[Rfam]
RNA sequence: GCAUCUCUGUCUUUCCUGUUCCUUGCUGUGCAGUGCGGGUUUGGGGACAGCUACCACUACAGUACAGCAGUGGAAAUCCAGAUGGGUUGCUCUCCACUGGUUUGGAACUCAUCUCUACACCUCUGCAACAUAC
Numbered sequence: 001g002c003a004u005c006u007c008u009g010u011c012u013u014u015c016c017u018g019u020u021c022c023u024u025g026c027u028g029u030g031c032a033g034u035g036c037g038g039g040u041u042u043g044g045g046g047a048c049a050g051c052u053a054c055c056a057c058u059a060c061a062g063u064a065c066a067g068c069a070g071u072g073g074a075a076a077u078c079c080a081g082a083u084g085g086g087u088u089g090c091u092c093u094c095c096a097c098u099g100g101u102u103u104g105g106a107a108c109u110c111a112u113c114u115c116u117a118c119a120c121c122u123c124u125g126c127a128a129c130a131u132a133c
Stems, first nucleotide, its partner, number of pairs: 001057001013047006021039002067126004072121001080114008094105003

A member of the RNA family "Small nucleolar RNA SNORA55" from Heliornis fulica, 133 nucleotides long. Rfam classes the family as an H/ACA-box small nucleolar RNA. Rfam describes the family as follows. ACA55 is a member of the H/ACA class of snoRNA that guide the sites of modification of uridines to pseudouridines. The family has 29 seed sequences and 1,476 matches in Rfam 15.1.